[Rfam]
RNA sequence: GUUACGGCGCGAAAGGAUCUUCCACGUGAAGGAACCCGUCGCGAGGCGGUAGUACGGGCGUGGUUGCCGGUGUCGUAACGUACGUUUUGAAGAACGG
Number, nucleotide and partner (000 for none) at each position: 001g079002u078003u077004a076005c075006g074007g073008c072009g071010c070011g000012a000013a000014a000015g068016g067017a000018u000019c000020u000021u000022c063023c062024a061025c060026g059027u058028g000029a000030a000031g055032g000033a000034a000035c000036c049037c048038g047039u046040c045041g000042c000043g000044a000045g040046g039047c038048g037049g036050u000051a000052g000053u000054a000055c031056g000057g000058g027059c026060g025061u024062g023063g022064u000065u000066g000067c016068c015069g000070g010071u009072g008073u007074c006075g005076u004077a003078a002079c001080g000081u000082a000083c096084g095085u094086u000087u000088u000089g000090a000091a000092g000093a000094a085095c084096g083097g000
RNA: Archaeal large subunit ribosomal RNA, nucleotides 550 to 646